[Rfam]
RNA sequence: CAGACGGCACCGCCGAGUCGAAUUUUUUGAGCCGGGGACCCAACUGCGCCAUCGGGGUGAAUCCGCGACCAGGUCGCGGUAGGACGACCUUCUCCGUCCGAACCCGUCAGCUAACCCGGUAGGCGGCUGGAAGAAGGAGC
Number, nucleotide and partner (000 for none) at each position: 001c000002a000003g000004a000005c000006g000007g000008c000009a000010c000011c125012g124013c123014c122015g000016a000017g000018u030019c029020g028021a000022a000023u000024u000025u000026u000027u000028u020029g019030a018031g120032c119033c118034g117035g116036g115037g000038a000039c000040c000041c054042a000043a000044c000045u000046g000047c000048g000049c000050c000051a000052u000053c000054g041055g105056g104057g103058u000059g000060a000061a000062u000063c079064c078065g077066c076067g000068a000069c000070c000071a000072g000073g000074u000075c000076g066077c065078g064079g063080u000081a000082g099083g098084a097085c096086g000087a000088c000089c000090u000091u000092c000093u000094c000095c000096g085097u084098c083099c082100g000101a000102a000103c057104c056105c055106g000107u000108c000109a000110g000111c000112u000113a000114a000115c036116c035117c034118g033119g032120u031121a000122g014123g013124c012125g011126g000127c000128u000129g000130g000131a000132a000133g000134a000135a000136g000137g000138a000139g000140c000
Notes
The record is a 140-nucleotide RNA from Dactylosporangium siamense, which matches "c-di-AMP riboswitch aptamer (ydaO/yuaA leader)" in Rfam. A search with the family's covariance model found it, with a score of 90 bits.